Shown here is a 135-nucleotide RNA sequence from Cyprinodon variegatus, a member of the family "Small nucleolar RNA SNORA75". Rfam 15.1 lists 414 matches to the family in 310 species. The match comes from Rfam's covariance-model search (84 bits).
[Rfam]
RNA sequence: ACCUUCUCAUGAGCUCCUGUUAAUCUACUCUAUGAUUAUACAUGGAUUCGCACGAGAAGCAUAGUCAGUGCACAGUAUGAAUGGAUUUUGCCCGUCUUUCAUAUGGGCACUACUAUAGUCUGCUGUGCUACACAU
Numbered sequence: 001a002c003c004u005u006c007u008c009a010u011g012a013g014c015u016c017c018u019g020u021u022a023a024u025c026u027a028c029u030c031u032a033u034g035a036u037u038a039u040a041c042a043u044g045g046a047u048u049c050g051c052a053c054g055a056g057a058a059g060c061a062u063a064g065u066c067a068g069u070g071c072a073c074a075g076u077a078u079g080a081a082u083g084g085a086u087u088u089u090g091c092c093c094g095u096c097u098u099u100c101a102u103a104u105g106g107g108c109a110c111u112a113c114u115a116u117a118g119u120c121u122g123c124u125g126u127g128c129u130a131c132a133c134a135u
Base pairs, nucleotide, nucleotide: 003059004058005057006056007055008054013051014050015046016045017044021038022037023036024035025034070128071127072126073125074124075123089109090108091107092106093105094104